[Rfam]
RNA sequence: UACCGGCGAUCGUAACGCCGCAGUCUGGCAGAAGGCCCGUCCCCCGCCUCACCAGACCGGACAAAGGCCUAUCCCCCUCUCCGGGUCUUUGUCCUUCUAUAAGAAACGCCACGGCUGCCCCCUCCCAGCCGUGGCGUUUUUGU
Numbered sequence: 001u002a003c004c005g006g007c008g009a010u011c012g013u014a015a016c017g018c019c020g021c022a023g024u025c026u027g028g029c030a031g032a033a034g035g036c037c038c039g040u041c042c043c044c045c046g047c048c049u050c051a052c053c054a055g056a057c058c059g060g061a062c063a064a065a066g067g068c069c070u071a072u073c074c075c076c077c078u079c080u081c082c083g084g085g086u087c088u089u090u091g092u093c094c095u096u097c098u099a100u101a102a103g104a105a106a107c108g109c110c111a112c113g114g115c116u117g118c119c120c121c122c123u124c125c126c127a128g129c130c131g132u133g134g135c136g137u138u139u140u141u142g143u
Stems, first nucleotide, its partner, number of pairs: 024056005034048003059094011103139001106137012
Dot-bracket structure: .......................(((((.....(((.........)))...)))))..(((((((((((..............)))))))))))........(..((((((((((((........)))))))))))).)....
RNA: Alphaproteobacterial sRNA ar7